[Rfam]
RNA: Bacterial RNase P class A
RNA sequence: AAUGCAAGCCAUCUUAUCGUUCCGACUUUUGAGUCGGGAAGGAAAGUCCGGGCAACAGAGAGCACCAUACUUCCUAACGGGAAGGCUUUUCAUAGUUUUAUGAAAGGACAGAAAGUGCCACAGAAAAUUACCGCCUUGCAAAAGGUAAGGGUGAAAAAGUGAGGUAAGAGCUCACUCGUUUUGCAGUGAUGUAAAAUUGGGGUAAACCUUAUGGGUUGAAAGACCAAAUAGGUUCCGUCUACAACAGAGUUGCUCGCUCUGAUUCCGGCUAACGGAAUGGCGGAAUGGGUAGGUCGUUUGAUUCCCGAUGGCGACUUCGGGACCAGAUAAAUGAUAAGACAAGACAGAACCCGGCUUAACGGCUUGCAUUUUUU
Numbered sequence: 001a002a003u004g005c006a007a008g009c010c011a012u013c014u015u016a017u018c019g020u021u022c023c024g025a026c027u028u029u030u031g032a033g034u035c036g037g038g039a040a041g042g043a044a045a046g047u048c049c050g051g052g053c054a055a056c057a058g059a060g061a062g063c064a065c066c067a068u069a070c071u072u073c074c075u076a077a078c079g080g081g082a083a084g085g086c087u088u089u090u091c092a093u094a095g096u097u098u099u100a101u102g103a104a105a106g107g108a109c110a111g112a113a114a115g116u117g118c119c120a121c122a123g124a125a126a127a128u129u130a131c132c133g134c135c136u137u138g139c140a141a142a143a144g145g146u147a148a149g150g151g152u153g154a155a156a157a158a159g160u161g162a163g164g165u166a167a168g169a170g171c172u173c174a175c176u177c178g179u180u181u182u183g184c185a186g187u188g189a190u191g192u193a194a195a196a197u198u199g200g201g202g203u204a205a206a207c208c209u210u211a212u213g214g215g216u217u218g219a220a221a222g223a224c225c226a227a228a229u230a231g232g233u234u235c236c237g238u239c240u241a242c243a244a245c246a247g248a249g250u251u252g253c254u255c256g257c258u259c260u261g262a263u264u265c266c267g268g269c270u271a272a273c274g275g276a277a278u279g280g281c282g283g284a285a286u287g288g289g290u291a292g293g294u295c296g297u298u299u300g301a302u303u304c305c306c307g308a309u310g311g312c313g314a315c316u317u318c319g320g321g322a323c324c325a326g327a328u329a330a331a332u333g334a335u336a337a338g339a340c341a342a343g344a345c346a347g348a349a350c351c352c353g354g355c356u357u358a359a360c361g362g363c364u365u366g367c368a369u370u371u372u373u374u
Stems, first nucleotide, its partner, number of pairs: 001370010012339007020039008044357003048354005053218004062270001065214005070084005085109001086107009110209002115207002117203003131150002133146005158176006177199001178197008222295004232286006263277005303322006310315001